[Rfam]
RNA sequence: GGAGAGAUGGCUGAGUGGUUGUAGCCCCGGUCUUGAAAACCGGUAUAGUUCACAACACGAACUAUCGAGGGUUCGAAUCCCCUCUCUCC
Numbered sequence: 001g002g003a004g005a006g007a008u009g010g011c012u013g014a015g016u017g018g019u020u021g022u023a024g025c026c027c028c029g030g031u032c033u034u035g036a037a038a039a040c041c042g043g044u045a046u047a048g049u050u051c052a053c054a055a056c057a058c059g060a061a062c063u064a065u066c067g068a069g070g071g072u073u074c075g076a077a078u079c080c081c082c083u084c085u086c087u088c089c
Stems, first nucleotide, its partner, number of pairs: 001089007010025004015020001027043005046064005069081003
RNA: Selenocysteine transfer RNA
Organism: Arachis hypogaea